[Rfam]
RNA sequence: AAGGUAUCGGUACCAAAAGGAACUCGGAAGCGGAGGAACCAAAUUGUGGGGCUUAUCUCUAACCUCCUUCACCAGAAGCGAGGAUAAACACGAGAGGGACAUCUCUCAGUCCUAGCCCGUCAGCUAACUCCGUCGGCGUUGGGAGGAGACUGA
Numbered sequence: 001a002a003g004g005u006a007u008c009g010g011u012a013c014c015a016a017a018a019g020g021a022a023c024u025c026g027g028a029a030g031c032g033g034a035g036g037a038a039c040c041a042a043a044u045u046g047u048g049g050g051g052c053u054u055a056u057c058u059c060u061a062a063c064c065u066c067c068u069u070c071a072c073c074a075g076a077a078g079c080g081a082g083g084a085u086a087a088a089c090a091c092g093a094g095a096g097g098g099a100c101a102u103c104u105c106u107c108a109g110u111c112c113u114a115g116c117c118c119g120u121c122a123g124c125u126a127a128c129u130c131c132g133u134c135g136g137c138g139u140u141g142g143g144a145g146g147a148g149a150c151u152g153a
Base pairs, nucleotide, nucleotide: 011138013136014135030133031132032131033130034129035128040048041047049118050117051116057094058093059092097112098111099110100109

A member of the RNA family "c-di-AMP riboswitch aptamer (ydaO/yuaA leader)" from Leptolyngbya sp. FACHB-261, 153 nucleotides long.
Taxonomically the source falls in Leptolyngbya (Bacteria, Bacillati, Cyanobacteriota, Cyanophyceae).